RNA sequence: GCAACUCUGGAAAGCAGGCGCAGCGCGCCUCGCCCACGGUGCAAGCCGCGCCCAGCGCGCGGUGAAGCUCUCAGGCUCAUGACAGAGGGGGAGGC
Numbered sequence: 001g002c003a004a005c006u007c008u009g010g011a012a013a014g015c016a017g018g019c020g021c022a023g024c025g026c027g028c029c030u031c032g033c034c035c036a037c038g039g040u041g042c043a044a045g046c047c048g049c050g051c052c053c054a055g056c057g058c059g060c061g062g063u064g065a066a067g068c069u070c071u072c073a074g075g076c077u078c079a080u081g082a083c084a085g086a087g088g089g090g091g092a093g094g095c
Stems, first nucleotide, its partner, number of pairs: 002090001005087005016030004032076003036071001039070001041068001045063006

This 95-nucleotide RNA sequence from Saccharothrix espanaensis belongs to the Rfam family "Glycine riboswitch aptamer". The organism belongs to Saccharothrix espanaensis, within Bacteria.